[Rfam]
RNA sequence: CGCAGAGUAGAAGCCUGCGCGUUGGCCUCCAAAAAGGGCCGCAGUGCCGUUCCGACGGGGAGUUGCGGAACGGACGAAAAGCACCGCUUGCGGUGCAGGCUUCGCAUCCCGCUGCU
Numbered sequence: 001c002g003c004a005g006a007g008u009a010g011a012a013g014c015c016u017g018c019g020c021g022u023u024g025g026c027c028u029c030c031a032a033a034a035a036g037g038g039c040c041g042c043a044g045u046g047c048c049g050u051u052c053c054g055a056c057g058g059g060g061a062g063u064u065g066c067g068g069a070a071c072g073g074a075c076g077a078a079a080a081g082c083a084c085c086g087c088u089u090g091c092g093g094u095g096c097a098g099g100c101u102u103c104g105c106a107u108c109c110c111g112c113u114g115c116u
Stems, first nucleotide, its partner, number of pairs: 002115004010103010020092003044075002047073008058109003062105001079089004